[Rfam]
RNA sequence: GAGAAGUAGCUGUAAAGCUCAGGAGGGAUAGCGCCAUGACUCAUCACCAUUACUAUAUGUCUUUGUAUAUGUAAUGGCGCUAUCCAUCCUGAGUUCCAUGGCUUCUUCUU
Numbered sequence: 001g002a003g004a005a006g007u008a009g010c011u012g013u014a015a016a017g018c019u020c021a022g023g024a025g026g027g028a029u030a031g032c033g034c035c036a037u038g039a040c041u042c043a044u045c046a047c048c049a050u051u052a053c054u055a056u057a058u059g060u061c062u063u064u065g066u067a068u069a070u071g072u073a074a075u076g077g078c079g080c081u082a083u084c085c086a087u088c089c090u091g092a093g094u095u096c097c098a099u100g101g102c103u104u105c106u107u108c109u110u
Stems, first nucleotide, its partner, number of pairs: 010101001016095009026085010
A member of the RNA family "MIR390 microRNA precursor family" from Brassica rapa, 110 nucleotides long.
Pairs were carried over by alignment from the consensus structure, which was predicted with WAR.
Lineage of the source: Eukaryota > Streptophyta > Streptophytina > Embryophyta > Brassica rapa.